[Rfam]
RNA sequence: AACUAAAUAAGUUUGUUGCCAGAGACAGCAGGUGCAAUGAUUGCUUAAAUAUCCUGCCGAGGUUGACGACUCCACUAGACAUCGUGCGGAUAAGCACGGUGGGAGAAACUCAAGCUUGACCCUGGUAACUGGUUACCAGGGUUUAAUUUUUGUUGU
Numbered sequence: 001a002a003c004u005a006a007a008u009a010a011g012u013u014u015g016u017u018g019c020c021a022g023a024g025a026c027a028g029c030a031g032g033u034g035c036a037a038u039g040a041u042u043g044c045u046u047a048a049a050u051a052u053c054c055u056g057c058c059g060a061g062g063u064u065g066a067c068g069a070c071u072c073c074a075c076u077a078g079a080c081a082u083c084g085u086g087c088g089g090a091u092a093a094g095c096a097c098g099g100u101g102g103g104a105g106a107a108a109c110u111c112a113a114g115c116u117u118g119a120c121c122c123u124g125g126u127a128a129c130u131g132g133u134u135a136c137c138a139g140g141g142u143u144u145a146a147u148u149u150u151u152g153u154u155g156u
Base pairs, nucleotide, nucleotide: 028057029056030055031054032053034044035043036042120141121140122139123138124137125136126135127134128133

Background
A member of the RNA family "Ribosomal protein L10 leader" from Merismopedia glauca, 156 nucleotides long. The organism belongs to Merismopedia glauca, within Bacteria. From the family's description: This family is a putative r-protein leader autoregulatory structure found in B. subtilis and other low-GC Gram-positive bacteria. It is located in the 5' untranslated regions of mRNAs encoding ribosomal proteins L10 and L12 (rplJ-rplL).